[Rfam]
RNA sequence: UCUGUUUGAUCCUGCCGGAGGUUACUGCUAUCGAGGUUCGACUAAGCCAUGCGAGUCGAAUGUAGCAAUACAUGGCGUACUGCUCAGUAACACGUGGACAACCUACCCUUAGGUCGGGGAUAAACCCGGGAAACUGGGUAUAAUACCCGAUAGUCCUCGACUGCUGGAAUGCAUCGAGUGCUAAAGCUCCGGCGCCUAAGGAUGGGUCUGCGGCCUAUCAGGUAGUAGUGGGUGUAGCGUACCUACUAGCCUACGACGGGUACGGGUUGUGAGAGCAAGAGCCCGGAGAUGGAUUCUGAGACACGAAUCCAGGCCCUACGGGGUGCAGCAGGCGCGAAAACUUUACAAUGCUGGAAACAGCGAUAAGGGGACCUCGAGUGCCAGGUUACAAAUCUGGCUGUCGUGAUGCCUAAAAAGCAUUGCAUAGCAAGGGCCGGGCAAGACCGGUGCCAGCCGCCGCGGUAACACCGGCGGCUCGAGUGGUAACCGUUAUUAUUG
Numbered sequence: 001u002c003u004g005u006u007u008g009a010u011c012c013u014g015c016c017g018g019a020g021g022u023u024a025c026u027g028c029u030a031u032c033g034a035g036g037u038u039c040g041a042c043u044a045a046g047c048c049a050u051g052c053g054a055g056u057c058g059a060a061u062g063u064a065g066c067a068a069u070a071c072a073u074g075g076c077g078u079a080c081u082g083c084u085c086a087g088u089a090a091c092a093c094g095u096g097g098a099c100a101a102c103c104u105a106c107c108c109u110u111a112g113g114u115c116g117g118g119g120a121u122a123a124a125c126c127c128g129g130g131a132a133a134c135u136g137g138g139u140a141u142a143a144u145a146c147c148c149g150a151u152a153g154u155c156c157u158c159g160a161c162u163g164c165u166g167g168a169a170u171g172c173a174u175c176g177a178g179u180g181c182u183a184a185a186g187c188u189c190c191g192g193c194g195c196c197u198a199a200g201g202a203u204g205g206g207u208c209u210g211c212g213g214c215c216u217a218u219c220a221g222g223u224a225g226u227a228g229u230g231g232g233u234g235u236a237g238c239g240u241a242c243c244u245a246c247u248a249g250c251c252u253a254c255g256a257c258g259g260g261u262a263c264g265g266g267u268u269g270u271g272a273g274a275g276c277a278a279g280a281g282c283c284c285g286g287a288g289a290u291g292g293a294u295u296c297u298g299a300g301a302c303a304c305g306a307a308u309c310c311a312g313g314c315c316c317u318a319c320g321g322g323g324u325g326c327a328g329c330a331g332g333c334g335c336g337a338a339a340a341c342u343u344u345a346c347a348a349u350g351c352u353g354g355a356a357a358c359a360g361c362g363a364u365a366a367g368g369g370g371a372c373c374u375c376g377a378g379u380g381c382c383a384g385g386u387u388a389c390a391a392a393u394c395u396g397g398c399u400g401u402c403g404u405g406a407u408g409c410c411u412a413a414a415a416a417g418c419a420u421u422g423c424a425u426a427g428c429a430a431g432g433g434c435c436g437g438g439c440a441a442g443a444c445c446g447g448u449g450c451c452a453g454c455c456g457c458c459g460c461g462g463u464a465a466c467a468c469c470g471g472c473g474g475c476u477c478g479a480g481u482g483g484u485a486a487c488c489g490u491u492a493u494u495a496u497u498g
Stems, first nucleotide, its partner, number of pairs: 002018003006014001020488010031377009040335001046333003050330003055076003060073005083288003093212007102205002107201007115149004124139006154180001156178005163172002186193002214260003221251003226248008263285004267278004290311006313324004341367001343366003349362005380398008402427001403423007431477006444471004453460002
The family of this 498-nucleotide part of an RNA from an uncultured archaeon is "Archaeal small subunit ribosomal RNA". It is one of the family's seed sequences. The family's consensus secondary structure is taken from published work. Its Rfam clan is "SSU clan". The literature on the family includes a 2001 paper in Science by Yusupov et al., "Crystal structure of the ribosome at 5.5 A resolution".